This 156-nucleotide sequence from Populus tomentosa belongs to the Rfam family "MIR2912 microRNA precursor family". Gene Ontology terms of the family: miRNA-mediated post-transcriptional gene silencing and RISC complex. The source organism's lineage runs through Eukaryota, Streptophyta, Spermatophyta, Pentapetalae and Populus. The base pairs follow the family's consensus structure, which was predicted with RNAalifold. It scores 116 bits against the family's covariance model. Rfam 15.1 lists 15,051 matches to the family in 15 species.
[Rfam]
RNA sequence: UCUAGAACUUGAGAUAUGGGCUGAACACUGAACAGUGUCCGAGUUGCGGGAUGAUUCAGACUUCUACGUUAUUGCUAUAAUUUUGACUUAAAAAUAGCUUUUUUUAAAUCUUGGACUCCAUAUGAAAGUUUUAGGCCUAUGUCUUAACUUUCUAUC
Dot-bracket structure: ..(((((.(.(((((((((((((((.(((.....(((...(.(.(..(((((((...((.((.........((...........)).........))))...))...)))))..).).).)))...)))))))).)))))))))))...)))))..
Numbered sequence: 001u002c003u004a005g006a007a008c009u010u011g012a013g014a015u016a017u018g019g020g021c022u023g024a025a026c027a028c029u030g031a032a033c034a035g036u037g038u039c040c041g042a043g044u045u046g047c048g049g050g051a052u053g054a055u056u057c058a059g060a061c062u063u064c065u066a067c068g069u070u071a072u073u074g075c076u077a078u079a080a081u082u083u084u085g086a087c088u089u090a091a092a093a094a095u096a097g098c099u100u101u102u103u104u105u106a107a108a109u110c111u112u113g114g115a116c117u118c119c120a121u122a123u124g125a126a127a128g129u130u131u132u133a134g135g136c137c138u139a140u141g142u143c144u145u146a147a148c149u150u151u152c153u154a155u156c
Stems, first nucleotide, its partner, number of pairs: 003154005009146001011145010021134005027129003035123003041119001043117001045115001048112005053104002058099002061097002072086002